Record summary
The family of this 167-nucleotide RNA sequence from Pelobacter propionicus is "M-box riboswitch aptamer (ykoK leader)". For this family Rfam cites "New RNA motifs suggest an expanded scope for riboswitches in bacterial genetic control" (Barrick et al., Proc Natl Acad Sci U S A, 2004). The sequence is in the family's curated seed alignment. Rfam describes the family as follows. M-box riboswitch, also know as ykoK leader is described as a metaloregulatory RNA that sense divalent metals and function as a genetic control element of genes related to divalent metal transport in bacteria. Taxonomically the source falls in Pelobacter propionicus (Bacteria, Pseudomonadati, Desulfuromonadia, Desulfuromonadaceae).
[Rfam]
RNA sequence: GUCGUUCCUCGUUAGAAUGAGGCGUUUGCACAAACACAGGCUGCUACCCAGAAACGUCGAAAGACGCCAAUGCGGUCAACAGGUUCUGCCGGAUUAAGGCUUAACCUAAUGCAGCUGGCCCCAGGCCUACGUUGUGCUCUGCCAAAAUCCAACCAGAGGGGAAUUGG
Numbered sequence: 001g002u003c004g005u006u007c008c009u010c011g012u013u014a015g016a017a018u019g020a021g022g023c024g025u026u027u028g029c030a031c032a033a034a035c036a037c038a039g040g041c042u043g044c045u046a047c048c049c050a051g052a053a054a055c056g057u058c059g060a061a062a063g064a065c066g067c068c069a070a071u072g073c074g075g076u077c078a079a080c081a082g083g084u085u086c087u088g089c090c091g092g093a094u095u096a097a098g099g100c101u102u103a104a105c106c107u108a109a110u111g112c113a114g115c116u117g118g119c120c121c122c123a124g125g126c127c128u129a130c131g132u133u134g135u136g137c138u139c140u141g142c143c144a145a146a147a148u149c150c151a152a153c154c155a156g157a158g159g160g161g162a163a164u165u166g167g
Stems, first nucleotide, its partner, number of pairs: 005163006011153002013097001015149002018147001021143003028137006040115005047074001049072002055066004082106004088100003117127003